[Rfam]
The record is a 131-nucleotide sequence from Desemzia incerta, which matches "c-di-AMP riboswitch aptamer (ydaO/yuaA leader)" in Rfam.
Lineage of the source: Bacteria > Bacillati > Bacillota > Bacilli > Desemzia.
Nucleotides: 131
Stems, first nucleotide, its partner, number of pairs: 011117004018032003033112006043053002054097003062072004075091004
Number, partner (000 for none) and nucleotide at each position: 001000u002000a003000g004000a005000u006000u007000g008000a009000a010000c011117u012116g013115c014114u015000g016000a017000a018032u019031u020030u021000c022000c023000u024000a025000a026000a027000a028000g029000g030020a031019a032018a033112a034111u035110g036109g037108g038107g039000g040000a041000a042000c043053c044052a045000c046000c047000u048000u049000u050000u051000u052044u053043g054097g055096g056095g057000u058000g059000a060000a061000u062072c063071a064070c065069a066000a067000u068000u069065u070064g071063u072062g073000u074000a075091g076090g077089g078088g079000u080000a081000g082000a083000a084000u085000u086000u087000a088078u089077u090076c091075c092000g093000a094000a095056u096055c097054c098000g099000u100000c101000a102000g103000c104000u105000u106000a107038c108037u109036c110035c111034a112033u113000a114014a115013g116012c117011a118000u119000a120000c121000g122000u123000c124000u125000c126000g127000a128000u129000u130000u131000a